[Rfam]
RNA sequence: AGUCUAGCUCCAGGGUAUAGCAGAAGUGUUUCCACCGUGGCUCUGGUCAGAUUCUUAUGAAUCUGAGAAUUCUGCC
Numbered sequence: 001a002g003u004c005u006a007g008c009u010c011c012a013g014g015g016u017a018u019a020g021c022a023g024a025a026g027u028g029u030u031u032c033c034a035c036c037g038u039g040g041c042u043c044u045g046g047u048c049a050g051a052u053u054c055u056u057a058u059g060a061a062u063c064u065g066a067g068a069a070u071u072c073u074g075c076c
Stems, first nucleotide, its partner, number of pairs: 012044004016039001020075006026038003048065007
Rfam assigns this 76-nucleotide RNA from Microcaecilia unicolor to the family "Mammalian CPEB3 ribozyme". It scores 40 bits against the family's covariance model. The organism belongs to Microcaecilia, within Eukaryota.